[Rfam]
RNA sequence: GGCUGUUCCCCUCUGGAGGUUUUUGACCUUCACACUUAUAAGGGCCCUGGUUUUCCAGUGGCCCUCUUUUUUUGCCUUU
Numbered sequence: 001g002g003c004u005g006u007u008c009c010c011c012u013c014u015g016g017a018g019g020u021u022u023u024u025g026a027c028c029u030u031c032a033c034a035c036u037u038a039u040a041a042g043g044g045c046c047c048u049g050g051u052u053u054u055c056c057a058g059u060g061g062c063c064c065u066c067u068u069u070u071u072u073u074g075c076c077u078u079u
Stems, first nucleotide, its partner, number of pairs: 008018001010016002042064005047058004
Source information
The family of this 79-nucleotide RNA from Rhizobium johnstonii is "Makes More Granules Regulator RNA (mmgR)". Rfam's curators put it in the seed alignment.